[Rfam]
RNA sequence: UGGGCAGUGGUGACACCAACAUGCCCUCUGAGAGCCCUCCUGGGAACCAGAGGCUGUUUCUGAGCUG
Numbered sequence: 001u002g003g004g005c006a007g008u009g010g011u012g013a014c015a016c017c018a019a020c021a022u023g024c025c026c027u028c029u030g031a032g033a034g035c036c037c038u039c040c041u042g043g044g045a046a047c048c049a050g051a052g053g054c055u056g057u058u059u060c061u062g063a064g065c066u067g
Base pairs, nucleotide, nucleotide: 005067006066007065008064